The family of this 286-nucleotide RNA from Apolygus lucorum is "Nuclear RNase P". Its Rfam clan is "RNaseP clan". NCBI's taxonomy places the organism under Eukaryota, Eumetazoa, Protostomia, Heteroptera, Apolygus. Rfam links the family to the GO terms ribonuclease P complex, tRNA processing and ribonuclease P activity. Rfam classes the family as a ribozyme. The match comes from Rfam's covariance-model search (120 bits).

[Rfam]
RNA sequence: CUUGGUGGGAUUGCAGCAAUGGGGGCUACUCGCGAGGCCCUUGUGGUCGUCAUGCCCUCGGGAAGGUCUGAGUUCGAGCCCUCGGACCCACCUAGCAGGAGGGUGCCCAUCAGAAGGGCAGCGAGGCAACAGAAAAAAGCGAGUCAACCUGGUCACCAGUCCUGGGACUCAUGAGGACAUGCCAGGUUGCGCUCGAUGGGAGAGUCUCGUGGCUGGCAAUUUGAGUUGAAUAGCUGCAGUGCGUGAUUUGUAGCGCAUAACUCAAUUCAGACUAGUCCUUGUCAAG
Dot-bracket structure: ((((..(((..((((((...(((((..........((((.....))))......)))))........[[[[[....((((......(((.((.....)).)))(((((.......)))))(((((((............(((((..............................................)))))........)))))))))))..................))))))((((((........)))))).......]]]]].......)))..))))